mir-544 microRNA precursor family: a 97-nucleotide RNA sequence from Myotis myotis. Its family is annotated with RISC complex and miRNA-mediated post-transcriptional gene silencing in the Gene Ontology. Pairs were carried over by alignment from the consensus structure, which was predicted with RNAalifold. The family has 16 seed sequences and 10,750 matches in Rfam 15.1.
[Rfam]
RNA sequence: AUCCCCUGGGGAUCUUGUUAAAAUGCAGAUUCUGAUUCCGAAGUUUUGGGGUGAGACCUGAAAAUCUGCAAUUUAACAAGAUCCCAGGUGAUGCUAA
Numbered sequence: 001a002u003c004c005c006c007u008g009g010g011g012a013u014c015u016u017g018u019u020a021a022a023a024u025g026c027a028g029a030u031u032c033u034g035a036u037u038c039c040g041a042a043g044u045u046u047u048g049g050g051g052u053g054a055g056a057c058c059u060g061a062a063a064a065u066c067u068g069c070a071a072u073u074u075a076a077c078a079a080g081a082u083c084c085c086a087g088g089u090g091a092u093g094c095u096a097a
Stems, first nucleotide, its partner, number of pairs: 003090001005088001009084003014080009025069005031063001033061001